Rfam assigns this 304-nucleotide RNA from Proteobacteria bacterium CAG:139 to the family "Bacterial RNase P class A".
[Rfam]
RNA sequence: GAAGUUCGUCGGACAAUCGCCGGGGAGAAAGACCUCGGAGGAAAGUCCGGACUCCACAGAGCACCGUAGGAGGUAACACCUCUCCGCCGAAAGGCGAGGACUAGAGCAACAGAGACGAGCCGAUUCAGUUCGGUUGAAACGGGCAAUCUCUACGGGGAGCAACAUCAAAUAGGCAGCUGAUGAACCUGCUCGGCGAGGCUGCGGGUAGAUGGCUCGAACUCGGGAGUGAUCCCGGGUCUAGAUGAAUGAUUGUCAUGCCGCGUUAAGCGCCACACAGAAUCCGGCUUAUAGACGGACUUCGCAC
Numbered sequence: 001g002a003a004g005u006u007c008g009u010c011g012g013a014c015a016a017u018c019g020c021c022g023g024g025g026a027g028a029a030a031g032a033c034c035u036c037g038g039a040g041g042a043a044a045g046u047c048c049g050g051a052c053u054c055c056a057c058a059g060a061g062c063a064c065c066g067u068a069g070g071a072g073g074u075a076a077c078a079c080c081u082c083u084c085c086g087c088c089g090a091a092a093g094g095c096g097a098g099g100a101c102u103a104g105a106g107c108a109a110c111a112g113a114g115a116c117g118a119g120c121c122g123a124u125u126c127a128g129u130u131c132g133g134u135u136g137a138a139a140c141g142g143g144c145a146a147u148c149u150c151u152a153c154g155g156g157g158a159g160c161a162a163c164a165u166c167a168a169a170u171a172g173g174c175a176g177c178u179g180a181u182g183a184a185c186c187u188g189c190u191c192g193g194c195g196a197g198g199c200u201g202c203g204g205g206u207a208g209a210u211g212g213c214u215c216g217a218a219c220u221c222g223g224g225a226g227u228g229a230u231c232c233c234g235g236g237u238c239u240a241g242a243u244g245a246a247u248g249a250u251u252g253u254c255a256u257g258c259c260g261c262g263u264u265a266a267g268c269g270c271c272a273c274a275c276a277g278a279a280u281c282c283g284g285c286u287u288a289u290a291g292a293c294g295g296a297c298u299u300c301g302c303a304c
Stems, first nucleotide, its partner, number of pairs: 001300010011289001012254007020038006043287003047284005052159004059191004064155005069083005084098001085096004099150002104148002106144002120133004163211004173202006185193002218237008
The organism belongs to Pseudomonadota, within Bacteria. A search with the family's covariance model found it, with a score of 220 bits.